Rfam assigns this 67-nucleotide RNA from Solibacillus silvestris to the family "Bacillaceae-1 RNA". By type it is a small RNA.

RNA sequence: GGGUAUGGAACGAAUGCUAAAACCGUCACGCCCUGUGACAACGCAUUCGUGACCAACAGCGUGUUGG
Number, nucleotide and partner (000 for none) at each position: 001g000002g000003g000004u000005a000006u000007g000008g000009a000010a000011c049012g048013a047014a046015u045016g044017c043018u000019a000020a000021a000022a000023c000024c000025g039026u038027c037028a036029c035030g000031c000032c000033c000034u000035g029036u028037g027038a026039c025040a000041a000042c000043g017044c016045a015046u014047u013048c012049g011050u000051g000052a000053c067054c066055a065056a064057c063058a000059g000060c000061g000062u000063g057064u056065u055066g054067g053